RNA sequence: GCCGGCGCCAUUUUUGUGAUUUGCAGCUAGUAAUCCAGCUCCAGUUGCAUAGUCACAAAAGUGAUGGUUGGC
Numbered sequence: 001g002c003c004g005g006c007g008c009c010a011u012u013u014u015u016g017u018g019a020u021u022u023g024c025a026g027c028u029a030g031u032a033a034u035c036c037a038g039c040u041c042c043a044g045u046u047g048c049a050u051a052g053u054c055a056c057a058a059a060a061g062u063g064a065u066g067g068u069u070g071g072c
Stems, first nucleotide, its partner, number of pairs: 002071005009063012022049007
Dot-bracket structure: .(((((..((((((((((((.(((((((..............)))))))..))))))))))))...))))).